A member of the RNA family "L31-Actinobacteria ribosomal protein leader" from Streptomyces sp. A73, 45 nucleotides long. It scores 45 bits against the family's covariance model.
[Rfam]
Nucleotides: 045
Stems, first nucleotide, its partner, number of pairs: 003045003007041004015035005021029002
Number, partner (000 for none) and nucleotide at each position: 001000u002000c003045g004044g005043c006000c007041c008040c009039g010038g011000u012000u013000c014000a015035c016034g017033g018032g019031a020000a021029a022028c023000a024000a025000c026000c027000c028022g029021u030000a031019u032018c033017c034016c035015g036000a037000c038010c039009c040008g041007g042000u043005g044004c045003c